[Rfam]
RNA sequence: GGGAGUAACGACGGUUACAUCGGGAGUGACUGAAUAAACUUACUGGCAUAUAGCUGGUUAAGGUGAUGAGACACAGGUGAUGCUGCUGCUCGUAAGAGUAGAAUCGACCAAUCAAUCGGGUCUCAGGCAGAGAAGUUUUCUAAUCUGUAGAAAUGCCCUUCUCUUGUUGGUAUACAGGAAUCCAACCUCCCCCUUU
Numbered sequence: 001g002g003g004a005g006u007a008a009c010g011a012c013g014g015u016u017a018c019a020u021c022g023g024g025a026g027u028g029a030c031u032g033a034a035u036a037a038a039c040u041u042a043c044u045g046g047c048a049u050a051u052a053g054c055u056g057g058u059u060a061a062g063g064u065g066a067u068g069a070g071a072c073a074c075a076g077g078u079g080a081u082g083c084u085g086c087u088g089c090u091c092g093u094a095a096g097a098g099u100a101g102a103a104u105c106g107a108c109c110a111a112u113c114a115a116u117c118g119g120g121u122c123u124c125a126g127g128c129a130g131a132g133a134a135g136u137u138u139u140c141u142a143a144u145c146u147g148u149a150g151a152a153a154u155g156c157c158c159u160u161c162u163c164u165u166g167u168u169g170g171u172a173u174a175c176a177g178g179a180a181u182c183c184a185a186c187c188u189c190c191c192c193c194u195u196u
Stems, first nucleotide, its partner, number of pairs: 002021002005018005022191005029064002042058006067125006074085003078114004086101006104119004129164007137153004145177004166186005
RNA: manA RNA